[Rfam]
RNA sequence: CGUGGUGUAUACGAUAAUACA
Numbered sequence: 001c002g003u004g005g006u007g008u009a010u011a012c013g014a015u016a017a018u019a020c021a
Stems, first nucleotide, its partner, number of pairs: 001013003006021005
Description: The record is a 21-nucleotide RNA sequence from Hoya chlorotic spot virus, which matches "Pseudoknot of upstream pseudoknot domain (UPD) of the 3'UTR" in Rfam. On this family, see Chng et al., Gene 1996: "The complete sequence of a Singapore isolate of odontoglossum ringspot virus and comparison with other tobamoviruses". Gene Ontology terms of the family: positive regulation of viral translation and regulation of viral transcription. Lineage of the source: Viruses > Riboviria > Kitrinoviricota > Martellivirales > Tobamovirus. A search with the family's covariance model found it, with a score of 34 bits. By type it is a cis-regulatory element.